Overview:
Shown here is a 158-nucleotide RNA sequence from Allobranchiibius huperziae, a member of the family "c-di-AMP riboswitch aptamer (ydaO/yuaA leader)". Gene Ontology terms of the family: regulation of gene expression and cyclic-di-AMP binding. Taxonomically the source falls in Allobranchiibius (Bacteria, Actinomycetota, Actinomycetes, Dermacoccaceae). The match comes from Rfam's covariance-model search (55 bits).

RNA sequence: UGUCACCAUCUGCCGGGAACGUCCCGGGAACGGCGAGGACGGGGGACCCAACCGGGUCUCCAUGCAUGGAGACCCACUGGGGUUAAGCAGAGAACUUCUGCAGGGCACCUGACCGCCCGACCCGACAGCUAACUCCGUAGGCGCGCGUCAGGAAAGGG
Numbered sequence: 001u002g003u004c005a006c007c008a009u010c011u012g013c014c015g016g017g018a019a020c021g022u023c024c025c026g027g028g029a030a031c032g033g034c035g036a037g038g039a040c041g042g043g044g045g046a047c048c049c050a051a052c053c054g055g056g057u058c059u060c061c062a063u064g065c066a067u068g069g070a071g072a073c074c075c076a077c078u079g080g081g082g083u084u085a086a087g088c089a090g091a092g093a094a095c096u097u098c099u100g101c102a103g104g105g106c107a108c109c110u111g112a113c114c115g116c117c118c119g120a121c122c123c124g125a126c127a128g129c130u131a132a133c134u135c136c137g138u139a140g141g142c143g144c145g146c147g148u149c150a151g152g153a154a155a156g157g158g
Base pairs, nucleotide, nucleotide: 011143012142013141014140020038022036039138040137041136042135043134044133049079050078080123081122082121088100089099090098091097103118104117105116106115